[Rfam]
RNA sequence: CAGCGUUCUCAGGGCGGGGUGGAAUUCCCCACCGGCGGUAUCCGUGAGCGAUCACGGGAGCCCGCGAGCGCCCGUUCAUGCAGCGGCCAACACCGGUGCGAGAACGGGGUCAGCAGACCUGGUGCGAUGCCAGGGCCGACGGUCACAGUCCGGAUGAAAGAGAAACGCGA
Numbered sequence: 001c002a003g004c005g006u007u008c009u010c011a012g013g014g015c016g017g018g019g020u021g022g023a024a025u026u027c028c029c030c031a032c033c034g035g036c037g038g039u040a041u042c043c044g045u046g047a048g049c050g051a052u053c054a055c056g057g058g059a060g061c062c063c064g065c066g067a068g069c070g071c072c073c074g075u076u077c078a079u080g081c082a083g084c085g086g087c088c089a090a091c092a093c094c095g096g097u098g099c100g101a102g103a104a105c106g107g108g109g110u111c112a113g114c115a116g117a118c119c120u121g122g123u124g125c126g127a128u129g130c131c132a133g134g135g136c137c138g139a140c141g142g143u144c145a146c147a148g149u150c151c152g153g154a155u156g157a158a159a160g161a162g163a164a165a166c167g168c169g170a
Base pairs, nucleotide, nucleotide: 003168004167005166006165007163008162009161010160017029018028019027031149032148033138034137035065036064037063038062060136061135068114069113118134119133120132121131122130140152141151142150

The record is a 170-nucleotide RNA from Rhizobacter sp. Root29, which matches "FMN riboswitch aptamer (RFN element)" in Rfam. The match comes from Rfam's covariance-model search (100 bits). Taxonomically the source falls in Rhizobacter (Bacteria, Pseudomonadota, Betaproteobacteria, Sphaerotilaceae).